[Rfam]
Nucleotides: 072
Base pairs, nucleotide, nucleotide: 011051012050013049014048015047016046017045026040027039028038029037030036059071060070061069062068
Number, partner (000 for none) and nucleotide at each position: 001000a002000u003000c004000a005000g006000u007000a008000g009000a010000c011051c012050u013049u014048c015047g016046a017045c018000u019000a020000a021000g022000u023000a024000c025000c026040g027039a028038c029037a030036c031000a032000u033000c034000c035000u036030g037029u038028g039027u040026c041000g042000a043000a044000c045017g046016u047015c048014g049013a050012a051011g052000u053000c054000a055000a056000g057000c058000a059071c060070u061069a062068c063000a064000u065000c066000c067000u068062g069061u070060g071059g072000a

Record summary: Bacillaceae-1 RNA: a 72-nucleotide RNA from Oceanobacillus profundus. It is annotated as a small RNA. The source organism's lineage runs through Bacteria, Bacillota, Bacilli, Caryophanales and Oceanobacillus. It scores 52 bits against the family's covariance model.